[Rfam]
RNA sequence: CCCUCCGAAGUUUCCCUCAGGAUAGCUGGAGCUCGUGUAAGAGUUUUAUCAGGUAAAGCGAAUGAUUAGAGGCAUCGGGGGUGUAACACCCUCGACCUAUUCUCAAACUUUAAAUAGGUAAGCCGCCGGGGUUGCUUGGUUGAACCCCGGCACAGAAUGAGAGCUCCAAGUGGGCCAUUUUUGGUAAGCAGAACUGGCGAUGCGGGAUGAACCGAAAGCCGGGUUACGGUGCCAAAUUGCGCGCUAACCUAGAUCCCACAAAGGGUGUUGAUUGAUUAAGACAGCAGGACGGUGGUCAUGGAAGUCGAAAUCCGCUAAGGAGUGUGUAACAACUCACCUGCCGAAUCAACUAGCCCCGAAAAUGGAUGGCGCUUAAGCGCGCAACCUACACCCGGCCAUUGGGGCGAGUGCGAGGCUUCAAUGAGUAGGAGGGCGUGGGGGUCGUGGAGCAGCUUUGGGCGUGAGCCCGAGUGAAACGGCCCCUAGUGCAGAU
Numbered sequence: 001c002c003c004u005c006c007g008a009a010g011u012u013u014c015c016c017u018c019a020g021g022a023u024a025g026c027u028g029g030a031g032c033u034c035g036u037g038u039a040a041g042a043g044u045u046u047u048a049u050c051a052g053g054u055a056a057a058g059c060g061a062a063u064g065a066u067u068a069g070a071g072g073c074a075u076c077g078g079g080g081g082u083g084u085a086a087c088a089c090c091c092u093c094g095a096c097c098u099a100u101u102c103u104c105a106a107a108c109u110u111u112a113a114a115u116a117g118g119u120a121a122g123c124c125g126c127c128g129g130g131g132u133u134g135c136u137u138g139g140u141u142g143a144a145c146c147c148c149g150g151c152a153c154a155g156a157a158u159g160a161g162a163g164c165u166c167c168a169a170g171u172g173g174g175c176c177a178u179u180u181u182u183g184g185u186a187a188g189c190a191g192a193a194c195u196g197g198c199g200a201u202g203c204g205g206g207a208u209g210a211a212c213c214g215a216a217a218g219c220c221g222g223g224u225u226a227c228g229g230u231g232c233c234a235a236a237u238u239g240c241g242c243g244c245u246a247a248c249c250u251a252g253a254u255c256c257c258a259c260a261a262a263g264g265g266u267g268u269u270g271a272u273u274g275a276u277u278a279a280g281a282c283a284g285c286a287g288g289a290c291g292g293u294g295g296u297c298a299u300g301g302a303a304g305u306c307g308a309a310a311u312c313c314g315c316u317a318a319g320g321a322g323u324g325u326g327u328a329a330c331a332a333c334u335c336a337c338c339u340g341c342c343g344a345a346u347c348a349a350c351u352a353g354c355c356c357c358g359a360a361a362a363u364g365g366a367u368g369g370c371g372c373u374u375a376a377g378c379g380c381g382c383a384a385c386c387u388a389c390a391c392c393c394g395g396c397c398a399u400u401g402g403g404g405c406g407a408g409u410g411c412g413a414g415g416c417u418u419c420a421a422u423g424a425g426u427a428g429g430a431g432g433g434c435g436u437g438g439g440g441g442u443c444g445u446g447g448a449g450c451a452g453c454u455u456u457g458g459g460c461g462u463g464a465g466c467c468c469g470a471g472u473g474a475a476a477c478g479g480c481c482c483c484u485a486g487u488g489c490a491g492a493u
Stems, first nucleotide, its partner, number of pairs: 001433006011024001013022003027168007045122006056111001057109002063105003068100001070098003075095006082088001125151009174198004179193005203214003218396005224390001228386003237383001239382001242379003263357003267354004272349005284341005290314003296308002315319001320335001324333002397423009434488001436485010452472002458467003
This 493-nucleotide part of an RNA from Physcomitrium patens belongs to the Rfam family "Eukaryotic large subunit ribosomal RNA".
A search with the family's covariance model found it, with a score of 3372 bits.
The base pairs follow the family's consensus structure, which is taken from published work.